[Rfam]
RNA sequence: CGUACCGACCCGCUCAAUCGUGAACUCACGAACCGGGGACCCACUGCACCACUGGGGUGAAUCCGCGAGCCUCGGCCCGCGGUAGGGCGACUUCCCGCCCGAAUCCGUCAGCUAACCCGGUCGGCGGUGACGGAAGGAGUA
Numbered sequence: 001c002g003u004a005c006c007g008a009c010c011c012g013c014u015c016a017a018u019c020g021u022g023a024a025c026u027c028a029c030g031a032a033c034c035g036g037g038g039a040c041c042c043a044c045u046g047c048a049c050c051a052c053u054g055g056g057g058u059g060a061a062u063c064c065g066c067g068a069g070c071c072u073c074g075g076c077c078c079g080c081g082g083u084a085g086g087g088c089g090a091c092u093u094c095c096c097g098c099c100c101g102a103a104u105c106c107g108u109c110a111g112c113u114a115a116c117c118c119g120g121u122c123g124g125c126g127g128u129g130a131c132g133g134a135a136g137g138a139g140u141a
Base pairs, nucleotide, nucleotide: 011126012125013124014123018031019030020029032121033120034119035118036117037116042054043053055106056105057104063082064081065080066079085100086099087098088097